[Rfam]
The family of this 118-nucleotide sequence from Handroanthus impetiginosus is "U5 spliceosomal RNA".
NCBI's taxonomy places the organism under Eukaryota, Magnoliopsida, Pentapetalae, asterids, Handroanthus.
Pairs were carried over by alignment from the consensus structure, which is taken from published work.
RNA sequence: AGCUGCGCAGUGAGCACAGAGCGAACUAUUCUUUCGCUUUUUACUAAAGAAUACCGUGUGCUCGCUGCAAUUAAGCAGCAUACCCUUAUUUUUGGAGGGAACUUCCAUUUUUGGAAGG
Numbered sequence: 001a002g003c004u005g006c007g008c009a010g011u012g013a014g015c016a017c018a019g020a021g022c023g024a025a026c027u028a029u030u031c032u033u034u035c036g037c038u039u040u041u042u043a044c045u046a047a048a049g050a051a052u053a054c055c056g057u058g059u060g061c062u063c064g065c066u067g068c069a070a071u072u073a074a075g076c077a078g079c080a081u082a083c084c085c086u087u088a089u090u091u092u093u094g095g096a097g098g099g100a101a102c103u104u105c106c107a108u109u110u111u112u113g114g115a116a117g118g
Base pairs, nucleotide, nucleotide: 003078004077005076006075008067009066010065011064012063013062014061015060016059017058018057027053028052029051030050031049032048033047034046102117103116104115105114106113
Rfam describes the family as follows. U5 RNA is a component of both types of known spliceosome.